[Rfam]
RNA sequence: AGGUCAUUUCAAAGAGGGCUCAUGGGGCCGUGAAACCAGGAGCUCUUAGCUCUGUGACCAAAGGUUUAAGUUGCCCAUAGGAUGCAAUAGUCAUUCAGUAGUGCUAAGUUUUUCUGAUGGGAUAUAAGA
Numbered sequence: 001a002g003g004u005c006a007u008u009u010c011a012a013a014g015a016g017g018g019c020u021c022a023u024g025g026g027g028c029c030g031u032g033a034a035a036c037c038a039g040g041a042g043c044u045c046u047u048a049g050c051u052c053u054g055u056g057a058c059c060a061a062a063g064g065u066u067u068a069a070g071u072u073g074c075c076c077a078u079a080g081g082a083u084g085c086a087a088u089a090g091u092c093a094u095u096c097a098g099u100a101g102u103g104c105u106a107a108g109u110u111u112u113u114c115u116g117a118u119g120g121g122a123u124a125u126a127a128g129a
Base pairs, nucleotide, nucleotide: 002059003058004057005056006055007054014047015046016045017044018043019042020041021040023039026037027036072122074120075119079115080114081113082112088106089105090104092103093102094101095100

The family of this 129-nucleotide sequence from Hipposideros armiger is "Small nucleolar RNA SNORA25".
By type it is an H/ACA-box small nucleolar RNA.
The match comes from Rfam's covariance-model search (116 bits).
The family has 30 seed sequences and 1,129 matches in Rfam 15.1.
Rfam's curators write: ACA25 is a member of the H/ACA class of snoRNA that guide the sites of modification of uridines to pseudouridines.
The source organism's lineage runs through Eukaryota, Chordata, Vertebrata, Yinpterochiroptera and Hipposideros.